The family of this 68-nucleotide sequence is "Small nucleolar RNA SNORD77". U77 belongs to the C/D family of snoRNAs. It is predicted to guide 2'O-ribose methylation of large 28S rRNA subunit at position A1521. The C/D snoRNAs U44, U47, U74, U75, U76, U78, U79, U80 and U81 share the same host gene as U77 (non-coding). Clan: SNORD77 clan.
Nucleotides: 068
Base pairs, nucleotide, nucleotide: 001066002065003064004063006038007037008036009035010034013028014027015026016025043055044054045053046052
Number, partner (000 for none) and nucleotide at each position: 001066g002065u003064a004063c005000u006038a007037u008036g009035a010034u011000a012000g013028u014027u015026g016025c017000a018000u019000a020000g021000u022000u023000c024000a025016g026015c027014a028013g029000a030000u031000u032000g033000a034010a035009u036008c037007a038006u039000c040000a041000a042000g043055a044054g045053a046052u047000u048000u049000a050000a051000u052046a053045u054044u055043u056000g057000u058000c059000u060000g061000a062000u063004g064003u065002a066001u067000c068000u
The family's consensus secondary structure was predicted with RNAalifold.